[Rfam]
RNA: MIR535 microRNA precursor family
RNA sequence: AUUAUCAAAUGAUAAUGAAAGAGAGCACGCUAAUUUUUAUUUAUGUAAGGACAUAGUUGUGUACAAGCGUGCUCUUUAUCGUUGUCAUAUGAUC
Numbered sequence: 001a002u003u004a005u006c007a008a009a010u011g012a013u014a015a016u017g018a019a020a021g022a023g024a025g026c027a028c029g030c031u032a033a034u035u036u037u038u039a040u041u042u043a044u045g046u047a048a049g050g051a052c053a054u055a056g057u058u059g060u061g062u063a064c065a066a067g068c069g070u071g072c073u074c075u076u077u078a079u080c081g082u083u084g085u086c087a088u089a090u091g092a093u094c
Stems, first nucleotide, its partner, number of pairs: 010087005016081002020077002023074001025072007034063001